[Rfam]
RNA sequence: UUUUAUUCAACCAACUUCUUUGCUUCACCAUAUAGUUAAAGAUAUUCUAUGGAAUGUAAAGAAGUUUGUGGAGUAAAG
Numbered sequence: 001u002u003u004u005a006u007u008c009a010a011c012c013a014a015c016u017u018c019u020u021u022g023c024u025u026c027a028c029c030a031u032a033u034a035g036u037u038a039a040a041g042a043u044a045u046u047c048u049a050u051g052g053a054a055u056g057u058a059a060a061g062a063a064g065u066u067u068g069u070g071g072a073g074u075a076a077a078g
Base pairs, nucleotide, nucleotide: 007072008071010069011068013066014065015064016063017062018061019060020059021058022057023056025054028052029051030050031049032048
The family of this 78-nucleotide RNA from Brachionus calyciflorus is "mir-1 microRNA precursor family". It scores 56 bits against the family's covariance model. A reference for the family is Lee and Ambros (2001), "An extensive class of small RNAs in Caenorhabditis elegans", Science. Gene Ontology terms of the family: miRNA-mediated post-transcriptional gene silencing and RISC complex. About the family: This family represents the microRNA (miRNA) mir-1 family. miRNAs are transcribed as ~70nt precursors (modelled here) and subsequently processed by the Dicer enzyme to give a ~22nt product. In this case the mature sequence comes from the 3' arm of the precursor. The extents of the hairpin precursors are not generally known and are estimated based on hairpin prediction.